[Rfam]
RNA sequence: UAUAGAUAAAGGCAAACCUAUCGAAAGGUGGGGACGCAAAGCUAUGGUCUAAGCCAUUAUGGUAUGACUGCCAGGUUGCCUAA
Number, nucleotide and partner (000 for none) at each position: 001u000002a000003u000004a000005g000006a000007u000008a000009a000010a000011g000012g037013c036014a000015a000016a000017c032018c031019u030020a029021u028022c027023g000024a000025a000026a000027g022028g021029u020030g019031g018032g017033g000034a000035c000036g013037c012038a000039a000040a077041g076042c075043u074044a000045u073046g072047g068048u067049c066050u000051a000052a000053g000054c062055c061056a060057u000058u000059a000060u056061g055062g054063u000064a000065u000066g049067a048068c047069u000070g000071c000072c046073a045074g043075g042076u041077u040078g000079c000080c000081u000082a000083a000
RNA: c-di-GMP-I riboswitch aptamer
Organism: Desulforamulus aquiferis